[Rfam]
RNA sequence: GGGGAGCAUCUAGAUGUCGAGAUGUUGCCUGAUACAACCUUCCUAAAGAAAAAACUGUUUUUUCCUACUUGUAGGGCUUGAGCAAGUCUGCAAGUCUCACAUAGACAGUGACAAAU
Numbered sequence: 001g002g003g004g005a006g007c008a009u010c011u012a013g014a015u016g017u018c019g020a021g022a023u024g025u026u027g028c029c030u031g032a033u034a035c036a037a038c039c040u041u042c043c044u045a046a047a048g049a050a051a052a053a054a055c056u057g058u059u060u061u062u063u064c065c066u067a068c069u070u071g072u073a074g075g076g077c078u079u080g081a082g083c084a085a086g087u088c089u090g091c092a093a094g095u096c097u098c099a100c101a102u103a104g105a106c107a108g109u110g111a112c113a114a115a116u
Base pairs, nucleotide, nucleotide: 001030002029003028005026006025007024008023009022010021011020054109055108056107067095068094069093070092071091072090073089074088076087077086078085
The family of this 116-nucleotide RNA from Trifolium subterraneum is "Small nucleolar RNA snoR104". Lineage of the source: Eukaryota > Viridiplantae > Magnoliopsida > Papilionoideae > Trifolium. It is annotated as an H/ACA-box small nucleolar RNA.